TPP riboswitch aptamer (THI element): a 91-nucleotide RNA sequence from Rodentibacter trehalosifermentans. For this family Rfam cites "Comparative genomics of thiamin biosynthesis in procaryotes. New genes and regulatory mechanisms" (Rodionov et al., J Biol Chem, 2002). Pairs were carried over by alignment from the consensus structure, which is taken from published work.
RNA sequence: GCCCAUUAGUCGGGGUGCCUAUCAUUGGCUGAGAGAGACCCGUGAACCUGAAACAGAUAAUGCUGGCGUAGGAAACUAAUUCUUUUCAUUA
Numbered sequence: 001g002c003c004c005a006u007u008a009g010u011c012g013g014g015g016u017g018c019c020u021a022u023c024a025u026u027g028g029c030u031g032a033g034a035g036a037g038a039c040c041c042g043u044g045a046a047c048c049u050g051a052a053a054c055a056g057a058u059a060a061u062g063c064u065g066g067c068g069u070a071g072g073a074a075a076c077u078a079a080u081u082c083u084u085u086u087c088a089u090u091a
Stems, first nucleotide, its partner, number of pairs: 006079005011042004016036001017029003021025001047072004054065003